[Rfam]
RNA sequence: CCCGCCGAUGAAUCAGCGGGCUAUUCUCAUUCGUCCCUACGGGACU
Numbered sequence: 001c002c003c004g005c006c007g008a009u010g011a012a013u014c015a016g017c018g019g020g021c022u023a024u025u026c027u028c029a030u031u032c033g034u035c036c037c038u039a040c041g042g043g044a045c046u
Stems, first nucleotide, its partner, number of pairs: 001020005007014002033045005